A member of the RNA family "mir-199 microRNA precursor family" from Muraenolepis orangiensis, 80 nucleotides long. The family has 83 seed sequences and 1,828 matches in Rfam 15.1. Lineage of the source: Eukaryota > Deuterostomia > Paracanthopterygii > Gadiformes > Muraenolepis. The base pairs follow the family's consensus structure, which was predicted with RNAalifold. This family consists of the microRNA (miRNA) precursor mir-199 which appears to be specific to humans. Animal miRNAs are transcribed as ~70nt precursors and subsequently processed by the Dicer enzyme to give a ~22nt product. In this case the mature sequence comes from the 3' arm of the precursor. The extents of the hairpin precursors are not generally known and are estimated based on hairpin prediction. The products are thought to have regulatory roles through complementarity to mRNA. The involvement of Dicer in miRNA processing suggests a relationship with the phenomenon of RNA interference. miRNAs are numbered based on the sequence of the mature RNA. It scores 94 bits against the family's covariance model.
[Rfam]
RNA sequence: AGCCCGCCCACCCAGUGUUCAGACUACCUGUUCAGGAAGUAGUGGUUGUACAGUAGUCUGCACAUUGGUUAGGCUGGCCA
Numbered sequence: 001a002g003c004c005c006g007c008c009c010a011c012c013c014a015g016u017g018u019u020c021a022g023a024c025u026a027c028c029u030g031u032u033c034a035g036g037a038a039g040u041a042g043u044g045g046u047u048g049u050a051c052a053g054u055a056g057u058c059u060g061c062a063c064a065u066u067g068g069u070u071a072g073g074c075u076g077g078c079c080a
Base pairs, nucleotide, nucleotide: 012068013067014066015065016064017063018062020060021059022058023057024056025055026054028053029052030051031050033048034047